[Rfam]
RNA: Bacterial large subunit ribosomal RNA, nucleotides 1965 to 2564
RNA sequence: UAGUAUCGGUGAAGAUGCCGGUUACCCGCUACGGGACGAAAAGACCCCGUGAACCUUUACUAUAGCUUAGUAUUGACUUUGGAUAAGUAAUGUGUAGGAUAGGUGGGAGACUUCGAUCAUGCGUCGCCAGGCGUAUGUGAGUCAUUGUUGAAAUACCACCCUUUGCUUAUUCGAAGCCUAACUCCCUUUAGGGAGGACAGUGCUUGGUGGGUAGUUUGACUGGGGUGGUCGCCUCCAAAAGAGUAACGGAGGCUUCUAAAGGUCUGCUCAGUACGGUUGGUAAUCGUGCGUAGAGUGCAAUGGCAUAAGCAGGCUUGACUGAGAGGCAUACAGGCCGAUCAGGUAGGAAACUAGAGCAUAGUGAUCCGGUGGUUCCGUAUGGAAGGGCCAUCGCUCAAAGGAUAAAAGGUACUCCGGGGAUAACAGGCUGAUCUCCCCCAAGAGCUCACAUCGACGGGGGGGUUUGGCACCUCGAUGUCGGCUCGUCACAUCCUGGGGCUGGAGAAGGUCCCAAGGGUUGGGCUGUUCGCCCAUUAAAGUGGCACGCGAGCUGGGUUCAGAACGUCGUGAGACAGUUCGGUCUCUAUCUGUAGUGGGCGU
Numbered sequence: 001u002a003g004u005a006u007c008g009g010u011g012a013a014g015a016u017g018c019c020g021g022u023u024a025c026c027c028g029c030u031a032c033g034g035g036a037c038g039a040a041a042a043g044a045c046c047c048c049g050u051g052a053a054c055c056u057u058u059a060c061u062a063u064a065g066c067u068u069a070g071u072a073u074u075g076a077c078u079u080u081g082g083a084u085a086a087g088u089a090a091u092g093u094g095u096a097g098g099a100u101a102g103g104u105g106g107g108a109g110a111c112u113u114c115g116a117u118c119a120u121g122c123g124u125c126g127c128c129a130g131g132c133g134u135a136u137g138u139g140a141g142u143c144a145u146u147g148u149u150g151a152a153a154u155a156c157c158a159c160c161c162u163u164u165g166c167u168u169a170u171u172c173g174a175a176g177c178c179u180a181a182c183u184c185c186c187u188u189u190a191g192g193g194a195g196g197a198c199a200g201u202g203c204u205u206g207g208u209g210g211g212u213a214g215u216u217u218g219a220c221u222g223g224g225g226u227g228g229u230c231g232c233c234u235c236c237a238a239a240a241g242a243g244u245a246a247c248g249g250a251g252g253c254u255u256c257u258a259a260a261g262g263u264c265u266g267c268u269c270a271g272u273a274c275g276g277u278u279g280g281u282a283a284u285c286g287u288g289c290g291u292a293g294a295g296u297g298c299a300a301u302g303g304c305a306u307a308a309g310c311a312g313g314c315u316u317g318a319c320u321g322a323g324a325g326g327c328a329u330a331c332a333g334g335c336c337g338a339u340c341a342g343g344u345a346g347g348a349a350a351c352u353a354g355a356g357c358a359u360a361g362u363g364a365u366c367c368g369g370u371g372g373u374u375c376c377g378u379a380u381g382g383a384a385g386g387g388c389c390a391u392c393g394c395u396c397a398a399a400g401g402a403u404a405a406a407a408g409g410u411a412c413u414c415c416g417g418g419g420a421u422a423a424c425a426g427g428c429u430g431a432u433c434u435c436c437c438c439c440a441a442g443a444g445c446u447c448a449c450a451u452c453g454a455c456g457g458g459g460g461g462g463u464u465u466g467g468c469a470c471c472u473c474g475a476u477g478u479c480g481g482c483u484c485g486u487c488a489c490a491u492c493c494u495g496g497g498g499c500u501g502g503a504g505a506a507g508g509u510c511c512c513a514a515g516g517g518u519u520g521g522g523c524u525g526u527u528c529g530c531c532c533a534u535u536a537a538a539g540u541g542g543c544a545c546g547c548g549a550g551c552u553g554g555g556u557u558c559a560g561a562a563c564g565u566c567g568u569g570a571g572a573c574a575g576u577u578c579g580g581u582c583u584c585u586a587u588c589u590g591u592a593g594u595g596g597g598c599g600u
Stems, first nucleotide, its partner, number of pairs: 005022005025597008034589003038584002046418004051414002053410005059215004066207002069204004075178001077176014092161001102160005109143003118137008182195003186192001218230004231253006254399001256356002262314006268294002271289006295304002319342004325336003344353003367393007375386002427468003431465001432462007442452002479554001480552004484546001485543005492517002495512006519533005560578004564573003